About this RNA
The record is a 224-nucleotide RNA from Gigaspora rosea, which matches "ACEA small nucleolar RNA U3" in Rfam. The source organism's lineage runs through Eukaryota, Glomeromycota, Glomeromycotina, Glomeromycetes and Gigaspora.
RNA sequence: UCGACUGUACUCUACAGGAUCUGUAUAUAGUCAGUCACCGGUCCUUGUUUUUCAACAAAGACACACGAAUUAAACUGGAUGAUGAAUCAUAGUGCACCAUCCGUAAAGGGAAGUGUGGUUAUGAUAUCUGGCCCUCAGGGCUAAGAUUAUUAUUUCCAGUUGAUGAUCUUGCCACACCUCUAUUCCAGGGGUCUGGCGAGGAUGGUUGCACAGUCUGACAGUAA
Numbered sequence: 001u002c003g004a005c006u007g008u009a010c011u012c013u014a015c016a017g018g019a020u021c022u023g024u025a026u027a028u029a030g031u032c033a034g035u036c037a038c039c040g041g042u043c044c045u046u047g048u049u050u051u052u053c054a055a056c057a058a059a060g061a062c063a064c065a066c067g068a069a070u071u072a073a074a075c076u077g078g079a080u081g082a083u084g085a086a087u088c089a090u091a092g093u094g095c096a097c098c099a100u101c102c103g104u105a106a107a108g109g110g111a112a113g114u115g116u117g118g119u120u121a122u123g124a125u126a127u128c129u130g131g132c133c134c135u136c137a138g139g140g141c142u143a144a145g146a147u148u149a150u151u152a153u154u155u156c157c158a159g160u161u162g163a164u165g166a167u168c169u170u171g172c173c174a175c176a177c178c179u180c181u182a183u184u185c186c187a188g189g190g191g192u193c194u195g196g197c198g199a200g201g202a203u204g205g206u207u208g209c210a211c212a213g214u215c216u217g218a219c220a221g222u223a224a
Stems, first nucleotide, its partner, number of pairs: 001041003006034001009031003016026001018024001045068004050063001052061002074222004092211005097205006106170004116158003120152001171197004176192006
Rfam describes the family as follows. Small nucleolar RNAs (snoRNAs) are involved in the processing and modification of rRNA in the nucleolus. There are two main classes of snoRNAs: the box C/D class, and the box H/ACA class. U3 snoRNA is a member of the box C/D class. Indeed, the box C/D element is a subset of the six short sequence elements found in all U3 snoRNAs, namely boxes A, A', B, C, C', and D. The U3 snoRNA secondary structure is characterised by a small 5' domain (with boxes A and A'), and a larger 3' domain (with boxes B, C, C', and D), the two domains being linked by a single-stranded hinge. The family's RNA type in Rfam is C/D-box small nucleolar RNA. Gene Ontology terms of the family: RNA processing and nucleolus.